[Rfam]
RNA: Streptomyces RNA 3920
Organism: Streptomyces sp. 150FB
RNA sequence: GAUAGCUACCUGCCGCUACUGUGAUUGGACACUGACGCAGAGUCAACUAGCCUAGUCCGGGUGGUUCUCCGCGCGUGGACCACACGGCGGUCCGAGCCACGAGGGGGGAGGCUCGGACCGUCUCCG
Dot-bracket structure: (.(((....))).)((((..(((......)))((((.....))))..))))......((.((((....)))).))((.....)).(((((((((((((.(......)..)))))))))))))....